[Rfam]
Record summary
The record is a 187-nucleotide sequence from Pseudoneobacillus rhizosphaerae, which matches "6S / SsrS RNA" in Rfam. The source organism's lineage runs through Bacteria, Bacillati, Bacilli, Caryophanales and Pseudoneobacillus. It is annotated as a non-coding RNA gene.
RNA sequence: AGAGUCCUGAAGUGUACGUUGUUUUACCUAAUGUUUUGACCAACAUUUUUCCUACGGGAGUUCGGAGUUUUCAUGCAGCGUAAAUGCCCUCAUUCGUAGGGACUUACAGAAGCUGAAAUAGAACACCCACCUGCUUGUGUGCGGGUUCAAAACAAGGAAAUCAACCGACGGCACCAUUGGGACUCUU
Numbered sequence: 001a002g003a004g005u006c007c008u009g010a011a012g013u014g015u016a017c018g019u020u021g022u023u024u025u026a027c028c029u030a031a032u033g034u035u036u037u038g039a040c041c042a043a044c045a046u047u048u049u050u051c052c053u054a055c056g057g058g059a060g061u062u063c064g065g066a067g068u069u070u071u072c073a074u075g076c077a078g079c080g081u082a083a084a085u086g087c088c089c090u091c092a093u094u095c096g097u098a099g100g101g102a103c104u105u106a107c108a109g110a111a112g113c114u115g116a117a118a119u120a121g122a123a124c125a126c127c128c129a130c131c132u133g134c135u136u137g138u139g140u141g142c143g144g145g146u147u148c149a150a151a152a153c154a155a156g157g158a159a160a161u162c163a164a165c166c167g168a169c170g171g172c173a174c175c176a177u178u179g180g181g182a183c184u185c186u187u
Base pairs, nucleotide, nucleotide: 002185003184004183005182006181007180008179009178010177012174013173014172015171017170018169019168032154033153034152035151037149038148039147040145041144056128057127058126060124061123062122063121065119070117071116072115073114075113076112082105083104087101088100089099090098